[Rfam]
RNA sequence: UCAACCGCGAUGGGAGAACCGGCCACUGCGCCGGUGCCGAAGGAGCAACCGCCCCGGAAACUCUCAGGCAGACGGACCGUCGCGGGGUA
Numbered sequence: 001u002c003a004a005c006c007g008c009g010a011u012g013g014g015a016g017a018a019c020c021g022g023c024c025a026c027u028g029c030g031c032c033g034g035u036g037c038c039g040a041a042g043g044a045g046c047a048a049c050c051g052c053c054c055c056g057g058a059a060a061c062u063c064u065c066a067g068g069c070a071g072a073c074g075g076a077c078c079g080u081c082g083c084g085g086g087g088u089a
Base pairs, nucleotide, nucleotide: 006084007083008082009081010080011079012078013077019034020033021032022031036069037068038067039065040064043063044062045061049057050056
RNA: Glycine riboswitch aptamer